L31-Gammaproteobacteria ribosomal protein leader: a 65-nucleotide RNA from Bowmanella dokdonensis. The family is grouped with related families in Rfam's "Ribosomal Protein L31 Leader clan". On this family, see Eckert and Weinberg, BMC Microbiol 2020: "Discovery of 20 novel ribosomal leader candidates in bacteria and archaea". The family's consensus secondary structure is taken from published work. A search with the family's covariance model found it, with a score of 50 bits. Rfam classes the family as a cis-regulatory leader.
RNA sequence: CGUAUGGUGCCAGUCGAGGCCAGCAAGGCUUUGGAUUGGAGAGCGAUACGGCCUGUUGAUGAGGU
Numbered sequence: 001c002g003u004a005u006g007g008u009g010c011c012a013g014u015c016g017a018g019g020c021c022a023g024c025a026a027g028g029c030u031u032u033g034g035a036u037u038g039g040a041g042a043g044c045g046a047u048a049c050g051g052c053c054u055g056u057u058g059a060u061g062a063g064g065u
Stems, first nucleotide, its partner, number of pairs: 001050005007044002010039006